Pseudomonas sRNA P14: a 139-nucleotide sequence. The base pairs follow the family's consensus structure, which was predicted with WAR. Rfam classes the family as a small RNA.
RNA sequence: AAACACAUUUUCUGUACACCGUUUUCCCCAUAUUUGUGGGGAAAACACACACAAAUCUGUGUGUUUUCCCCACACAGGUCUGUUUACUGAACACAAUCUAUGUGUUCAGUAAAUAGACUAUUUACUGAAGGUUCAGUAA
Numbered sequence: 001a002a003a004c005a006c007a008u009u010u011u012c013u014g015u016a017c018a019c020c021g022u023u024u025u026c027c028c029c030a031u032a033u034u035u036g037u038g039g040g041g042a043a044a045a046c047a048c049a050c051a052c053a054a055a056u057c058u059g060u061g062u063g064u065u066u067u068c069c070c071c072a073c074a075c076a077g078g079u080c081u082g083u084u085u086a087c088u089g090a091a092c093a094c095a096a097u098c099u100a101u102g103u104g105u106u107c108a109g110u111a112a113a114u115a116g117a118c119u120a121u122u123u124a125c126u127g128a129a130g131g132u133u134c135a136g137u138a139a
Base pairs, nucleotide, nucleotide: 035074036073038070039069040068041067042066044065045064046063047062048061049060050059078118079117080116082114083113085111086110087109089107090106091105092104093103094102096101122139123138124137125136126135127134